RNA: Small nucleolar RNA SNORD82
Organism: Nannospalax galili
RNA sequence: UGCACAAGUGAUGAAUGACAAGGGACUUAAUACUGAAACCUCAUGCUGGAAUGCAAUAUGCUGAUGUGC
Number, nucleotide and partner (000 for none) at each position: 001u000002g069003c068004a067005c066006a065007a000008g000009u000010g000011a000012u000013g000014a000015a000016u000017g000018a000019c000020a000021a000022g000023g000024g000025a000026c000027u000028u000029a000030a000031u000032a000033c000034u000035g000036a000037a000038a000039c000040c000041u000042c000043a000044u000045g000046c000047u000048g000049g000050a000051a000052u000053g000054c000055a000056a000057u000058a000059u000060g000061c000062u000063g000064a000065u006066g005067u004068g003069c002